Small nucleolar RNA snR80: a 185-nucleotide RNA from Huiozyma naganishii. It scores 87 bits against the family's covariance model.
RNA sequence: ACAAGUUUGACGACACUCUGGUGCCUAGUGGUAUAUUAGAUCUGAAAUUUUACUAUUUCAGCUUUUCUUUUAUUCUAACUAUAUUAGGUUCCUAUUUUGGCUCAAACAAGAUCCACUGACACUUACUCACCAAGAUAGUCUCUUCCUCCAUGACUAUAUUGGUCCAUCUUUCAUCUGUCAUAUAU
Number, nucleotide and partner (000 for none) at each position: 001a000002c000003a000004a000005g000006u000007u105008u104009g103010a000011c000012g000013a000014c000015a000016c000017u000018c000019u000020g092021g091022u000023g089024c088025c000026u086027a085028g084029u083030g000031g000032u000033a000034u000035a000036u000037u000038a000039g000040a000041u000042c000043u000044g000045a000046a000047a000048u000049u000050u000051u000052a000053c000054u000055a000056u000057u000058u000059c000060a000061g000062c000063u000064u000065u000066u000067c000068u000069u000070u000071u000072a000073u000074u000075c000076u000077a000078a000079c000080u000081a000082u000083a029084u028085u027086a026087g000088g024089u023090u000091c021092c020093u000094a000095u000096u000097u000098u000099g000100g000101c000102u000103c009104a008105a007106a000107c000108a000109a000110g000111a000112u000113c000114c000115a000116c000117u000118g179119a178120c177121a000122c000123u000124u000125a000126c000127u000128c000129a000130c162131c161132a160133a159134g000135a157136u156137a155138g154139u153140c152141u000142c000143u000144u000145c000146c000147u000148c000149c000150a000151u000152g140153a139154c138155u137156a136157u135158a000159u133160u132161g131162g130163u000164c000165c000166a000167u000168c000169u000170u000171u000172c000173a000174u000175c000176u000177g120178u119179c118180a000181u000182a000183u000184a000185u000
It is annotated as an H/ACA-box small nucleolar RNA. The family is grouped with related families in Rfam's "SNORA28 clan". The base pairs follow the family's consensus structure, which was predicted with WAR. On this family, see Schattner et al., Nucleic Acids Res 2004: "Genome-wide searching for pseudouridylation guide snoRNAs: analysis of the Saccharomyces cerevisiae genome".